[Rfam]
RNA sequence: AAGUAAAAUAUGCCGAAUCCCCAAAAAGGGGUACGGGGGAUUUAUAUUGGGGUGAAUCCAUUAUGUGGUAGGGCGGCCCUUUGUCCGAACCCGUCAACUAACCUCGGAGGCAAAGGGGGAAAACUA
Numbered sequence: 001a002a003g004u005a006a007a008a009u010a011u012g013c014c015g016a017a018u019c020c021c022c023a024a025a026a027a028g029g030g031g032u033a034c035g036g037g038g039g040a041u042u043u044a045u046a047u048u049g050g051g052g053u054g055a056a057u058c059c060a061u062u063a064u065g066u067g068g069u070a071g072g073g074c075g076g077c078c079c080u081u082u083g084u085c086c087g088a089a090c091c092c093g094u095c096a097a098c099u100a101a102c103c104u105c106g107g108a109g110g111c112a113a114a115g116g117g118g119g120a121a122a123a124c125u126a
Stems, first nucleotide, its partner, number of pairs: 011112004019031002034106005043049002050092003058068004071086004
RNA: c-di-AMP riboswitch aptamer (ydaO/yuaA leader)